The family of this 71-nucleotide RNA sequence from Mus musculus is "mir-344 microRNA precursor family". It scores 73 bits against the family's covariance model. The family has 18 seed sequences and 339 matches in Rfam 15.1. On this family, see Chiang et al., Genes Dev 2010: "Mammalian microRNAs: experimental evaluation of novel and previously annotated genes". The organism belongs to Mus, within Eukaryota.
RNA sequence: UGAUCAGUCUGGCUUCUGGCUAUAUUCCAGGACUUAUCUGGUCCUCUGUUUAACCAAAGCCUGACCGUAUG
Numbered sequence: 001u002g003a004u005c006a007g008u009c010u011g012g013c014u015u016c017u018g019g020c021u022a023u024a025u026u027c028c029a030g031g032a033c034u035u036a037u038c039u040g041g042u043c044c045u046c047u048g049u050u051u052a053a054c055c056a057a058a059g060c061c062u063g064a065c066c067g068u069a070u071g
Stems, first nucleotide, its partner, number of pairs: 007065003011061004017056003021052002024049001027041005